[Rfam]
This 140-nucleotide RNA from Aspergillus sclerotiicarbonarius belongs to the Rfam family "A. fumigatus sRNA Afu_254". NCBI's taxonomy places the organism under Eukaryota, saccharomyceta, Pezizomycotina, Eurotiomycetes, Aspergillus sclerotiicarbonarius. Rfam classes the family as a small RNA. Rfam 15.1 lists 185 matches to the family in 142 species. A search with the family's covariance model found it, with a score of 83 bits. For this family Rfam cites "Small ncRNA transcriptome analysis from Aspergillus fumigatus suggests a novel mechanism for regulation of protein synthesis" (Jochl et al., Nucleic Acids Res, 2008). The family's consensus secondary structure was predicted with WAR.
RNA sequence: CUCCAAAAAUACAUCUCCAAACAAUCCUUGUUUAGUAUAUCUCAUAUACUAUCCCACCAUCACCAUGUCUCCCUGCGCCUGCAACUGCUGCUCCGGCAACUGCAACUCUUGCUCUUGCAACUCUUGCAAGGUAUCUCCAC
Numbered sequence: 001c002u003c004c005a006a007a008a009a010u011a012c013a014u015c016u017c018c019a020a021a022c023a024a025u026c027c028u029u030g031u032u033u034a035g036u037a038u039a040u041c042u043c044a045u046a047u048a049c050u051a052u053c054c055c056a057c058c059a060u061c062a063c064c065a066u067g068u069c070u071c072c073c074u075g076c077g078c079c080u081g082c083a084a085c086u087g088c089u090g091c092u093c094c095g096g097c098a099a100c101u102g103c104a105a106c107u108c109u110u111g112c113u114c115u116u117g118c119a120a121c122u123c124u125u126g127c128a129a130g131g132u133a134u135c136u137c138c139a140c
Stems, first nucleotide, its partner, number of pairs: 074098003081091003102127003111118002